RNA sequence: AUUAAUCUUCAGGGCAGGGUGAAAUUCCCGACCGGCGGUACAGUCCGCGAGCUGAAAAGCAUGAUUAGGUGUGAUUCCUAAACCGAUAGUAUAGUCUAGAUGGAAGAAGAAAAAA
Number, nucleotide and partner (000 for none) at each position: 001a000002u000003u113004a000005a000006u110007c109008u108009u107010c106011a000012g000013g000014g000015c000016a000017g029018g028019g027020u000021g000022a000023a000024a000025u000026u000027c019028c018029c017030g000031a095032c094033c085034g084035g048036c047037g046038g045039u000040a000041c000042a000043g083044u082045c038046c037047g036048c035049g000050a000051g000052c000053u059054g000055a000056a000057a000058a000059g053060c000061a000062u000063g000064a000065u081066u080067a079068g078069g077070u000071g000072u000073g000074a000075u000076u000077c069078c068079u067080a066081a065082a044083c043084c034085g033086a000087u098088a097089g096090u000091a000092u000093a000094g032095u031096c089097u088098a087099g000100a000101u000102g000103g000104a000105a000106g010107a009108a008109g007110a006111a000112a000113a003114a000115a000
RNA: FMN riboswitch aptamer (RFN element)